[Rfam]
Shown here is a 146-nucleotide sequence from Bacillus manliponensis, a member of the family "c-di-AMP riboswitch aptamer (ydaO/yuaA leader)". A search with the family's covariance model found it, with a score of 101 bits.

RNA sequence: UAAUACCUUUUGCUGAAUCCAAAAUUUGGAGCGGGGGAACCACUUUUGUGGCACUUGCCACUUGGGGCGAAUCUUAUGUUUAAGUAGGGAUACUCUCACAUCCCGAGUCCGACAGCUAACCUCGUAAGCUUUAUGGGAGAGGUAGG
Numbered sequence: 001u002a003a004u005a006c007c008u009u010u011u012g013c014u015g016a017a018u019c020c021a022a023a024a025u026u027u028g029g030a031g032c033g034g035g036g037g038a039a040c041c042a043c044u045u046u047u048g049u050g051g052c053a054c055u056u057g058c059c060a061c062u063u064g065g066g067g068c069g070a071a072u073c074u075u076a077u078g079u080u081u082a083a084g085u086a087g088g089g090a091u092a093c094u095c096u097c098a099c100a101u102c103c104c105g106a107g108u109c110c111g112a113c114a115g116c117u118a119a120c121c122u123c124g125u126a127a128g129c130u131u132u133a134u135g136g137g138a139g140a141g142g143u144a145g146g
Base pairs, nucleotide, nucleotide: 012129013128014127018030019029020028031125032124033123034122035121036120041064042063065110066109067108073084074083075082076081087104088103089102090101
This family represents a conserved RNA structure found upstream of the ydaO and yuaA genes in Bacillus subtilis and related genes in other bacteria.